[Rfam]
RNA sequence: CGGGCGGUGUAGUCCCAGAUCUCGUCCGCUCCGGCGAGGGCCUGUUCGCCGAGGUACUGGCCGUCGGCGAGGAUGCCCAGCCGCACCGCGGAGUCGUACGCCCCGACGCCCAGCUGGUCGACCUUUCCGUGCGCGAUGAGCAGCACCUCGUCGACGACGGAGCCGAACUCGGCGAGGACUUCGCCGGCUCGGUACUCGCGUUGCUCGAACCGGUCGGCGAGCGCCGCGAGGACCUCCUCGUCGGGGAAGCCGCGCAGGGCAGGCAGUUCGGUCAGCUCGGCCGGCACCACGCGGACCGCCGUUCCCACGUUGGUGAAGGUCAGCAGGCCGUCGCCGAGCGUGUAGCUGAGCCGCCGGUUGACCCGGUAGCUGCCGCCGGCGACGGACACCCAGGGCAGUUUGCGCUGCAACCAGCGGGAGGAGAUCUCCUGCAUCUGGGGGACGGACUUCGUCGUCGUCGCGAGGUUGCGGGCCGCGGCGGUGCUCAGGCUCAGCUGAGAGCGUGCCG
Numbered sequence: 001c002g003g004g005c006g007g008u009g010u011a012g013u014c015c016c017a018g019a020u021c022u023c024g025u026c027c028g029c030u031c032c033g034g035c036g037a038g039g040g041c042c043u044g045u046u047c048g049c050c051g052a053g054g055u056a057c058u059g060g061c062c063g064u065c066g067g068c069g070a071g072g073a074u075g076c077c078c079a080g081c082c083g084c085a086c087c088g089c090g091g092a093g094u095c096g097u098a099c100g101c102c103c104c105g106a107c108g109c110c111c112a113g114c115u116g117g118u119c120g121a122c123c124u125u126u127c128c129g130u131g132c133g134c135g136a137u138g139a140g141c142a143g144c145a146c147c148u149c150g151u152c153g154a155c156g157a158c159g160g161a162g163c164c165g166a167a168c169u170c171g172g173c174g175a176g177g178a179c180u181u182c183g184c185c186g187g188c189u190c191g192g193u194a195c196u197c198g199c200g201u202u203g204c205u206c207g208a209a210c211c212g213g214u215c216g217g218c219g220a221g222c223g224c225c226g227c228g229a230g231g232a233c234c235u236c237c238u239c240g241u242c243g244g245g246g247a248a249g250c251c252g253c254g255c256a257g258g259g260c261a262g263g264c265a266g267u268u269c270g271g272u273c274a275g276c277u278c279g280g281c282c283g284g285c286a287c288c289a290c291g292c293g294g295a296c297c298g299c300c301g302u303u304c305c306c307a308c309g310u311u312g313g314u315g316a317a318g319g320u321c322a323g324c325a326g327g328c329c330g331u332c333g334c335c336g337a338g339c340g341u342g343u344a345g346c347u348g349a350g351c352c353g354c355c356g357g358u359u360g361a362c363c364c365g366g367u368a369g370c371u372g373c374c375g376c377c378g379g380c381g382a383c384g385g386a387c388a389c390c391c392a393g394g395g396c397a398g399u400u401u402g403c404g405c406u407g408c409a410a411c412c413a414g415c416g417g418g419a420g421g422a423g424a425u426c427u428c429c430u431g432c433a434u435c436u437g438g439g440g441g442a443c444g445g446a447c448u449u450c451g452u453c454g455u456c457g458u459c460g461c462g463a464g465g466u467u468g469c470g471g472g473c474c475g476c477g478g479c480g481g482u483g484c485u486c487a488g489g490c491u492c493a494g495c496u497g498a499g500a501g502c503g504u505g506c507c508g
Stems, first nucleotide, its partner, number of pairs: 006390005015381001018328001022322001024320003029315001035313001037311002040308001048302002051299001054233002057230002060227002063224002066110003075103001080102001082100002085097002117222002122217002126213002129210002131206001133204004138199001140197001143196001149191002156188001158186003162182001163177002235295003240290002244288002249285004253279002256277002260271001262269001329342003351379003355375003361371001363369001391431005397425001399423003403418001405416001407415001437476001439474002443470002446467001447465006477507002481502002484499005